[Rfam]
RNA sequence: AGGAGUGCGACGAGCUCACAUGCCCGUUUCUUGCCUUUUACCAGACACGGCCGGAGAUCGCGCCUUAUACUCCACUUCUAAUCUUUGGAAAACCAAUUGAACUCGCGUUC
Numbered sequence: 001a002g003g004a005g006u007g008c009g010a011c012g013a014g015c016u017c018a019c020a021u022g023c024c025c026g027u028u029u030c031u032u033g034c035c036u037u038u039u040a041c042c043a044g045a046c047a048c049g050g051c052c053g054g055a056g057a058u059c060g061c062g063c064c065u066u067a068u069a070c071u072c073c074a075c076u077u078c079u080a081a082u083c084u085u086u087g088g089a090a091a092a093c094c095a096a097u098u099g100a101a102c103u104c105g106c107g108u109u110c
Base pairs, nucleotide, nucleotide: 003072004071005070006069008062009061011060012059013058015056016055017054024050025049026048027047029045030044031043091109092108093107
Shown here is a 110-nucleotide sequence from Pyricularia oryzae, a member of the family "U5 spliceosomal RNA". Rfam's curators put it in the seed alignment. About the family: U5 RNA is a component of both types of known spliceosome. A reference for the family is Thomas et al. (1990), "The spliceosomal snRNAs of Caenorhabditis elegans", Nucleic Acids Res.